[Rfam]
RNA sequence: CCAGAUAACCCAUUAUCUGAGCUCAGACGGUAUGCAUUAGAAGUAAUUCUUUUGUGUAAAGCCCGUUUAAUUUGGUCAACAAACCUUCCAUCCUUAUAUAAGGAUGGUGAGCUAUAUUACUAUGGAUAAA
Numbered sequence: 001c002c003a004g005a006u007a008a009c010c011c012a013u014u015a016u017c018u019g020a021g022c023u024c025a026g027a028c029g030g031u032a033u034g035c036a037u038u039a040g041a042a043g044u045a046a047u048u049c050u051u052u053u054g055u056g057u058a059a060a061g062c063c064c065g066u067u068u069a070a071u072u073u074g075g076u077c078a079a080c081a082a083a084c085c086u087u088c089c090a091u092c093c094u095u096a097u098a099u100a101a102g103g104a105u106g107g108u109g110a111g112c113u114a115u116a117u118u119a120c121u122a123u124g125g126a127u128a129a130a
Stems, first nucleotide, its partner, number of pairs: 002019006026067005031058006039050004072083002075080001084103004104123006
This 130-nucleotide RNA from Histoplasma ohiense belongs to the Rfam family "Group II catalytic intron D1-D4-7". Its family is annotated with Group II intron splicing in the Gene Ontology. The match comes from Rfam's covariance-model search (40 bits). Group II introns are found in rRNA, tRNA and mRNA of organelles in fungi, plants and protists, and also in mRNA in bacteria. For this family Rfam cites "The ins and outs of group II introns" (Bonen and Vogel, Trends Genet, 2001).